[Rfam]
RNA sequence: GAUCCGAUAGUAUGGUAGAAAGAAAUAUAUGAACCUUUCUACCACACUAUCUAUUAUUGUUAGUGUGUUGUAUUGUGUUGUAUAA
Numbered sequence: 001g002a003u004c005c006g007a008u009a010g011u012a013u014g015g016u017a018g019a020a021a022g023a024a025a026u027a028u029a030u031g032a033a034c035c036u037u038u039c040u041a042c043c044a045c046a047c048u049a050u051c052u053a054u055u056a057u058u059g060u061u062a063g064u065g066u067g068u069u070g071u072a073u074u075g076u077g078u079u080g081u082a083u084a085a
Base pairs, nucleotide, nucleotide: 006051007050008049009048010047011046013044014043015042016041017040018039019038020037021036022035023028
Plastid-psbM 3UTR RNA: an 85-nucleotide RNA sequence from Tetracentron sinense. A reference for the family is Richter et al. (2023), "Retrograde signaling in plants: A critical review focusing on the GUN pathway and beyond", Plant Commun. Plastid psbM is a non-coding RNA (ncRNA) recognised in plastids. It was found in the three prime untranslated region (3UTR) of psbM gene, its 3UTR location suggests a role in transcript maturation.